[Rfam]
Annotation:
This 384-nucleotide RNA from Hartmannibacter diazotrophicus belongs to the Rfam family "Bacterial RNase P class A". The match comes from Rfam's covariance-model search (296 bits). It is annotated as a ribozyme.
RNA sequence: CCAGCCGGUUGGACGGCCGCUGCCGCGAGAGGUGAAAGCCUGCGGGAGAGGAAAGUCCGGGCUCCACGGAAACACGGUGCCGGGUAACGCCCGGCGGGGGCGACCCCAGGGAAAGUGCCACAGAGAUCGAACCGCCCGGGUCCGCCCGGGUAAGGGUGAAAAGGUGGGGUAAGAGCCCACCGCGCCGCCGGCAACGGCGACGGCAUGGCAAACCCCACCGGGAGCAAAACCGAAUAGGGGCGGCGUGGGCCUUCGGGCCCAGUUGGUUUCCGAACCGGCCGCCCGGGUGGGUUGCGCGAGACGUCCGGCAACGGGCGUCCCAGAUGAAUGGUCGUCAGCGGGGAAACCCGUCUACAGAACCCGGCUUACAGACCGGCUGGCAGC
Numbered sequence: 001c002c003a004g005c006c007g008g009u010u011g012g013a014c015g016g017c018c019g020c021u022g023c024c025g026c027g028a029g030a031g032g033u034g035a036a037a038g039c040c041u042g043c044g045g046g047a048g049a050g051g052a053a054a055g056u057c058c059g060g061g062c063u064c065c066a067c068g069g070a071a072a073c074a075c076g077g078u079g080c081c082g083g084g085u086a087a088c089g090c091c092c093g094g095c096g097g098g099g100g101c102g103a104c105c106c107c108a109g110g111g112a113a114a115g116u117g118c119c120a121c122a123g124a125g126a127u128c129g130a131a132c133c134g135c136c137c138g139g140g141u142c143c144g145c146c147c148g149g150g151u152a153a154g155g156g157u158g159a160a161a162a163g164g165u166g167g168g169g170u171a172a173g174a175g176c177c178c179a180c181c182g183c184g185c186c187g188c189c190g191g192c193a194a195c196g197g198c199g200a201c202g203g204c205a206u207g208g209c210a211a212a213c214c215c216c217a218c219c220g221g222g223a224g225c226a227a228a229a230c231c232g233a234a235u236a237g238g239g240g241c242g243g244c245g246u247g248g249g250c251c252u253u254c255g256g257g258c259c260c261a262g263u264u265g266g267u268u269u270c271c272g273a274a275c276c277g278g279c280c281g282c283c284c285g286g287g288u289g290g291g292u293u294g295c296g297c298g299a300g301a302c303g304u305c306c307g308g309c310a311a312c313g314g315g316c317g318u319c320c321c322a323g324a325u326g327a328a329u330g331g332u333c334g335u336c337a338g339c340g341g342g343g344a345a346a347c348c349c350g351u352c353u354a355c356a357g358a359a360c361c362c363g364g365c366u367u368a369c370a371g372a373c374c375g376g377c378u379g380g381c382a383g384c
Stems, first nucleotide, its partner, number of pairs: 001380010011369001012336007020048002023045005053367003057364005062224004075220005080094005095109001096107004110215002115213002117209003132155002134151007163181006182204001183202002186199005228293004238284006264277005300319008